Nucleotides: 062
Base pairs, nucleotide, nucleotide: 003058004057005056006055007054008053009052010051011050012049013048014047015046016045017044018043019042020041021040022037023036024035
Number, partner (000 for none) and nucleotide at each position: 001000c002000a003058g004057g005056g006055g007054g008053a009052c010051u011050g012049g013048g014047g015046g016045u017044g018043a019042g020041c021040a022037g023036g024035c025000a026000c027000a028000g029000a030000c031000c032000c033000c034000a035024g036023c037022u038000c039000g040021u041020g042019c043018u044017c045016a046015c047014u048013c049012u050011c051010g052009g053008u054007c055006c056005c057004u058003c059000c060000c061000u062000a
Shown here is a 62-nucleotide sequence from Macaca mulatta, a member of the family "mir-6794 microRNA precursor family". It is one of the family's seed sequences.